[Rfam]
RNA sequence: CUUCAGCGAACCAAGCCACAAAGGCCGCCCCGCGUCGCGCUGCCCAUACGUCGCCAACAACGCCUGCGCUUC
Numbered sequence: 001c002u003u004c005a006g007c008g009a010a011c012c013a014a015g016c017c018a019c020a021a022a023g024g025c026c027g028c029c030c031c032g033c034g035u036c037g038c039g040c041u042g043c044c045c046a047u048a049c050g051u052c053g054c055c056a057a058c059a060a061c062g063c064c065u066g067c068g069c070u071u072c
Stems, first nucleotide, its partner, number of pairs: 015025003031068003038062002041056002044053001046051001
RNA: ASpks TB sRNA
Organism: Streptomyces sp. KCTC 0041BP